The record is a 148-nucleotide RNA sequence from Zhengella mangrovi, which matches "Alphaproteobacterial sRNA ar45" in Rfam. By type it is a small RNA. The match comes from Rfam's covariance-model search (150 bits).

RNA sequence: GCCCAAAGUCGCACGUGCCUGUGGGUGUCCGCCGAUCCCCCGACAAGGUGGGGGCUACGGUAAGGUACCCGGAGCUAACCCCUCCGGUCGUCCGUCCGGCCAACCGGACAGGCGAGGACAUCUUGAAGCAACGACGGUGCGGGCCUUU
Numbered sequence: 001g002c003c004c005a006a007a008g009u010c011g012c013a014c015g016u017g018c019c020u021g022u023g024g025g026u027g028u029c030c031g032c033c034g035a036u037c038c039c040c041c042g043a044c045a046a047g048g049u050g051g052g053g054g055c056u057a058c059g060g061u062a063a064g065g066u067a068c069c070c071g072g073a074g075c076u077a078a079c080c081c082c083u084c085c086g087g088u089c090g091u092c093c094g095u096c097c098g099g100c101c102a103a104c105c106g107g108a109c110a111g112g113c114g115a116g117g118a119c120a121u122c123u124u125g126a127a128g129c130a131a132c133g134a135c136g137g138u139g140c141g142g143g144c145c146u147u148u
Stems, first nucleotide, its partner, number of pairs: 001144004008135004016130003023123008031061004038053005069087005088115004094109006